Notes
A member of the RNA family "c-di-GMP-I-UAU riboswitch aptamer" from Pelobacter propionicus, 76 nucleotides long. Clan: c-di-GMP_I riboswitch clan. Rfam's curators put it in the seed alignment. Taxonomically the source falls in Pelobacter propionicus (Bacteria, Pseudomonadati, Desulfuromonadia, Pelobacter).
RNA sequence: CACCGACGGUGCACAGCACGGGUAACCGUGUGUCGCAAAACUACCAUCCCGAAGAGGGAUAGAGGGGUUGUCGAAG
Numbered sequence: 001c002a003c004c005g006a007c008g009g010u011g012c013a014c015a016g017c018a019c020g021g022g023u024a025a026c027c028g029u030g031u032g033u034c035g036c037a038a039a040a041c042u043a044c045c046a047u048c049c050c051g052a053a054g055a056g057g058g059a060u061a062g063a064g065g066g067g068u069u070g071u072c073g074a075a076g
Base pairs, nucleotide, nucleotide: 011036012035016031017030018029019028020027021026039069040068041067042066044065045064046060047059048058049057050056
Dot-bracket structure: ..........((...((((((....))))))...))..((((.(((((((.....)))))...)))))).......
The base pairs follow the family's consensus structure, which is taken from published work.